[Rfam]
RNA sequence: AUUGAUAACAAGGGGAGCUUGUGUUACAGGCUGAGAGGAAGUUGUAAGCUUCGACCCAUAACCUGAUUUGGAUAAUGCCAACGUAGGGAUGCGUUAUUUUACUACA
Dot-bracket structure: .....((((..(((..(((((.....)))))......(((((.....)))))..)))....((((..((((......))))..)))).....))))..........
Numbered sequence: 001a002u003u004g005a006u007a008a009c010a011a012g013g014g015g016a017g018c019u020u021g022u023g024u025u026a027c028a029g030g031c032u033g034a035g036a037g038g039a040a041g042u043u044g045u046a047a048g049c050u051u052c053g054a055c056c057c058a059u060a061a062c063c064u065g066a067u068u069u070g071g072a073u074a075a076u077g078c079c080a081a082c083g084u085a086g087g088g089a090u091g092c093g094u095u096a097u098u099u100u101a102c103u104a105c106a
Stems, first nucleotide, its partner, number of pairs: 006096004012057003017031005038052005062087004068081004